[Rfam]
The family of this 139-nucleotide RNA sequence from Zizania palustris is "Small nucleolar RNA Z247". A search with the family's covariance model found it, with a score of 67 bits.
Nucleotides: 139
Base pairs, nucleotide, nucleotide: 004138005137007135008134089108090107093104094103
Number, partner (000 for none) and nucleotide at each position: 001000c002000c003000u004138u005137u006000g007135g008134a009000u010000g011000a012000u013000g014000a015000a016000g017000a018000u019000a020000u021000g022000g023000u024000u025000g026000g027000u028000u029000a030000c031000a032000u033000c034000c035000u036000a037000g038000c039000u040000g041000g042000c043000u044000u045000a046000g047000a048000u049000g050000a051000a052000a053000g054000u055000u056000a057000u058000g059000a060000g061000c062000c063000a064000c065000u066000c067000g068000u069000g070000u071000c072000a073000u074000c075000u076000g077000u078000u079000g080000u081000u082000g083000g084000g085000a086000g087000g088000u089108u090107g091000g092000a093104g094103c095000c096000g097000g098000u099000u100000a101000c102000g103094g104093u105000a106000g107090c108089a109000g110000a111000a112000c113000u114000g115000u116000a117000u118000u119000c120000u121000c122000a123000a124000c125000u126000u127000c128000u129000c130000a131000g132000c133000u134008u135007c136000g137005a138004a139000a